[Rfam]
RNA sequence: GAGAGGUCCAUGCCCUUAGCCGUUUAACUAUUUAAACGUCAUCCCAUCAGACGGUUAAACUAUUCUGAACUGGUGCUAAACGGAAUGAGGGUAGUCAUCCCUCUCCU
Numbered sequence: 001g002a003g004a005g006g007u008c009c010a011u012g013c014c015c016u017u018a019g020c021c022g023u024u025u026a027a028c029u030a031u032u033u034a035a036a037c038g039u040c041a042u043c044c045c046a047u048c049a050g051a052c053g054g055u056u057a058a059a060c061u062a063u064u065c066u067g068a069a070c071u072g073g074u075g076c077u078a079a080a081c082g083g084a085a086u087g088a089g090g091g092u093a094g095u096c097a098u099c100c101c102u103c104u105c106c107u
Stems, first nucleotide, its partner, number of pairs: 001105006011093008020083007028075001044073003047068005